[Rfam]
The record is a 98-nucleotide sequence from Artemisia annua, which matches "Small nucleolar RNA Z43" in Rfam. The base pairs follow the family's consensus structure, which was predicted with PFOLD. Lineage of the source: Eukaryota > Magnoliopsida > Pentapetalae > Asteroideae > Artemisia. It scores 94 bits against the family's covariance model. The family's RNA type in Rfam is C/D-box small nucleolar RNA. The family has 7 seed sequences and 859 matches in Rfam 15.1.

RNA sequence: GGAUAAUGACGAAUGUGAUUUGGUCUCGUUCGUCGUAAUGGUGACUAAUAAUCACCUUGCCGACCAUUCUGUUAUAUCACCACCCAUAAACUGAAUCC
Numbered sequence: 001g002g003a004u005a006a007u008g009a010c011g012a013a014u015g016u017g018a019u020u021u022g023g024u025c026u027c028g029u030u031c032g033u034c035g036u037a038a039u040g041g042u043g044a045c046u047a048a049u050a051a052u053c054a055c056c057u058u059g060c061c062g063a064c065c066a067u068u069c070u071g072u073u074a075u076a077u078c079a080c081c082a083c084c085c086a087u088a089a090a091c092u093g094a095a096u097c098c
Stems, first nucleotide, its partner, number of pairs: 001098004043058002
Background: On this family, see Chen et al., Nucleic Acids Res 2003: "The high diversity of snoRNAs in plants: identification and comparative study of 120 snoRNA genes from Oryza sativa".